[Rfam]
RNA sequence: AGGGGUAUAGUUCAGUUGGUAGAAUAUCGGUCUCCAAAACCGCAGGUCGUGGGUUCAAGUCCUACUGCCCCUG
Numbered sequence: 001a002g003g004g005g006u007a008u009a010g011u012u013c014a015g016u017u018g019g020u021a022g023a024a025u026a027u028c029g030g031u032c033u034c035c036a037a038a039a040c041c042g043c044a045g046g047u048c049g050u051g052g053g054u055u056c057a058a059g060u061c062c063u064a065c066u067g068c069c070c071c072u073g
Base pairs, nucleotide, nucleotide: 001072002071003070004069005068006067007066010025011024012023013022028042029041030040031039049065050064051063052062053061
Background: The family of this 73-nucleotide sequence from Lachnospiraceae bacterium KM106-2 is "tRNA". From the family's description: Transfer RNA (tRNA) molecules are approximately 80 nucleotides in length.